The family of this 171-nucleotide sequence from Hymenochirus boettgeri is "Small nucleolar RNA SNORD97". Taxonomically the source falls in Hymenochirus (Eukaryota, Opisthokonta, Bilateria, Vertebrata). By type it is a C/D-box small nucleolar RNA.
RNA sequence: UGGCCCAGUGAUUAAGAAAAGACGCGUUAUUACGAGGACUUUUGCUGGAGACUUGCAUAUUUCAAUCUACCUUCCCAUCUUCCUUUAUCCCAACCUUUCUUCUCUCUGUUCUCUACUGUCUGUGCUAGUUUUCUGGUGUCCACUGAGCAAGAUUAUGAGAUAUGAGGGCCA
Numbered sequence: 001u002g003g004c005c006c007a008g009u010g011a012u013u014a015a016g017a018a019a020a021g022a023c024g025c026g027u028u029a030u031u032a033c034g035a036g037g038a039c040u041u042u043u044g045c046u047g048g049a050g051a052c053u054u055g056c057a058u059a060u061u062u063c064a065a066u067c068u069a070c071c072u073u074c075c076c077a078u079c080u081u082c083c084u085u086u087a088u089c090c091c092a093a094c095c096u097u098u099c100u101u102c103u104c105u106c107u108g109u110u111c112u113c114u115a116c117u118g119u120c121u122g123u124g125c126u127a128g129u130u131u132u133c134u135g136g137u138g139u140c141c142a143c144u145g146a147g148c149a150a151g152a153u154u155a156u157g158a159g160a161u162a163u164g165a166g167g168g169c170c171a
Stems, first nucleotide, its partner, number of pairs: 001171006035054003039050003